[Rfam]
RNA sequence: CCCACCGUUGAAACGGUGGGCUAUUAUCGAAUGUCCCUCCGGGACG
Numbered sequence: 001c002c003c004a005c006c007g008u009u010g011a012a013a014c015g016g017u018g019g020g021c022u023a024u025u026a027u028c029g030a031a032u033g034u035c036c037c038u039c040c041g042g043g044a045c046g
Base pairs, nucleotide, nucleotide: 001020002019003018004017005016006015007014008013033045034044035043036042037041
The record is a 46-nucleotide sequence from Candidatus Vecturithrix granuli, which matches "Acido-Lenti-1 RNA" in Rfam. The family's RNA type in Rfam is small RNA. It scores 45 bits against the family's covariance model.